[Rfam]
RNA sequence: CUUGCAGAGGUUAUUGGCAUUCUGUCCAUCUCCAAGUCAUCCAUCUCUCCUGAACAUGGAGAAGCUUAUAGAUGGAGGUGGGCAUCCUGCCAACAGAUCUCUGUUGG
Number, nucleotide and partner (000 for none) at each position: 001c000002u000003u000004g000005c000006a000007g000008a000009g000010g000011u097012u000013a000014u093015u092016g091017g090018c089019a088020u000021u000022c000023u084024g083025u082026c081027c080028a079029u078030c077031u076032c075033c074034a000035a000036g000037u000038c000039a000040u000041c000042c000043a000044u000045c000046u000047c000048u000049c000050c000051u000052g000053a000054a000055c000056a000057u000058g000059g000060a000061g000062a000063a000064g000065c000066u000067u000068a000069u000070a000071g000072a000073u000074g033075g032076a031077g030078g029079u028080g027081g026082g025083c024084a023085u000086c000087c000088u019089g018090c017091c016092a015093a014094c000095a000096g000097a011098u000099c000100u000101c000102u000103g000104u000105u000106g000107g000
RNA: MIR394 microRNA precursor family
Organism: Musa acuminata